[Rfam]
RNA sequence: GUAUUCUGAUAAUCGCUAUGCUGAAUUUUUCAGUGUAGAGGAAAGUCCAUGCUCACACGUUUCUGAGAUGAGCGUAGUGUUCGUGCUUGACGAAACAAUAAGUCAAGGCAGUUCGUUUGAUACGACUGACGGCUGCGAAAUAACCUAAGUGUGUAAACAUAUGGUUAGAUUAGCUAUAAAAGUGCCACAGUGACGGAGCUUUUAUAGAAAUAUAAAAGGUGGAACGCGGUAAACCCCUCGAGUGAGCAAUCCAAAUUAGGUAGGAGCACUUUCUAAAAGGAAUUCAACGGAUAGAAAGAUAUUACUUUGUAAUAUAGACAGAUGAUUAUCACCAAUGUGCGAGUGUGACUAGUACACGUUUGCAGCACAGCGGUACAGAACAUGGCUUAUAGAA
Numbered sequence: 001g002u003a004u005u006c007u008g009a010u011a012a013u014c015g016c017u018a019u020g021c022u023g024a025a026u027u028u029u030u031c032a033g034u035g036u037a038g039a040g041g042a043a044a045g046u047c048c049a050u051g052c053u054c055a056c057a058c059g060u061u062u063c064u065g066a067g068a069u070g071a072g073c074g075u076a077g078u079g080u081u082c083g084u085g086c087u088u089g090a091c092g093a094a095a096c097a098a099u100a101a102g103u104c105a106a107g108g109c110a111g112u113u114c115g116u117u118u119g120a121u122a123c124g125a126c127u128g129a130c131g132g133c134u135g136c137g138a139a140a141u142a143a144c145c146u147a148a149g150u151g152u153g154u155a156a157a158c159a160u161a162u163g164g165u166u167a168g169a170u171u172a173g174c175u176a177u178a179a180a181a182g183u184g185c186c187a188c189a190g191u192g193a194c195g196g197a198g199c200u201u202u203u204a205u206a207g208a209a210a211u212a213u214a215a216a217a218g219g220u221g222g223a224a225c226g227c228g229g230u231a232a233a234c235c236c237c238u239c240g241a242g243u244g245a246g247c248a249a250u251c252c253a254a255a256u257u258a259g260g261u262a263g264g265a266g267c268a269c270u271u272u273c274u275a276a277a278a279g280g281a282a283u284u285c286a287a288c289g290g291a292u293a294g295a296a297a298g299a300u301a302u303u304a305c306u307u308u309g310u311a312a313u314a315u316a317g318a319c320a321g322a323u324g325a326u327u328a329u330c331a332c333c334a335a336u337g338u339g340c341g342a343g344u345g346u347g348a349c350u351a352g353u354a355c356a357c358g359u360u361u362g363c364a365g366c367a368c369a370g371c372g373g374u375a376c377a378g379a380a381c382a383u384g385g386c387u388u389a390u391a392g393a394a
Base pairs, nucleotide, nucleotide: 004394005393006392008330009329010328011327012326013325014324016038017037018036019035020034021033043388044387045386047385048384049383050382051381052246053245054244055243056242057075058074059073060072062071063070081241082240083239085237086107087106088105089104090103091102108130109128110127111126112125113124131236132235135174136173142166143165144164145163149160150159151158182234183233184230185229186228199218200217201216202215203214204213205212206211250265251264252263269298270297271296272295273294274293275292299315300314301313302312303311304310332373333372336369337368338367339366340365